[Rfam]
RNA sequence: AGUUCAUUACAGCUUAAUGGCUGAAAAGGGUAUCAAUAGACCUUUCAAUCAGCGGGGGAACCAUAAGAAUAGACACUAUGCUAGUGAGCUAUUCAGGGGUGAAUCAGAGCAGUUGGUGAAGACCGAUAACUCUGUAGGGAGACUCUUACUUCCGAAUCCGUCAGCUAACCUCGUAAGCUGCAAUAAGAGAGACG
Numbered sequence: 001a002g003u004u005c006a007u008u009a010c011a012g013c014u015u016a017a018u019g020g021c022u023g024a025a026a027a028g029g030g031u032a033u034c035a036a037u038a039g040a041c042c043u044u045u046c047a048a049u050c051a052g053c054g055g056g057g058g059a060a061c062c063a064u065a066a067g068a069a070u071a072g073a074c075a076c077u078a079u080g081c082u083a084g085u086g087a088g089c090u091a092u093u094c095a096g097g098g099g100u101g102a103a104u105c106a107g108a109g110c111a112g113u114u115g116g117u118g119a120a121g122a123c124c125g126a127u128a129a130c131u132c133u134g135u136a137g138g139g140a141g142a143c144u145c146u147u148a149c150u151u152c153c154g155a156a157u158c159c160g161u162c163a164g165c166u167a168a169c170c171u172c173g174u175a176a177g178c179u180g181c182a183a184u185a186a187g188a189g190a191g192a193c194g
Stems, first nucleotide, its partner, number of pairs: 011179004018051003052174006062096001097159003105134004137153004
The family of this 194-nucleotide RNA from Paenibacillus nuruki is "c-di-AMP riboswitch aptamer (ydaO/yuaA leader)". The organism belongs to Paenibacillus, within Bacteria. On this family, see Barrick et al., Proc Natl Acad Sci U S A 2004: "New RNA motifs suggest an expanded scope for riboswitches in bacterial genetic control". The base pairs follow the family's consensus structure. From the family's description: This family represents a conserved RNA structure found upstream of the ydaO and yuaA genes in Bacillus subtilis and related genes in other bacteria. Gene Ontology terms of the family: regulation of gene expression and cyclic-di-AMP binding.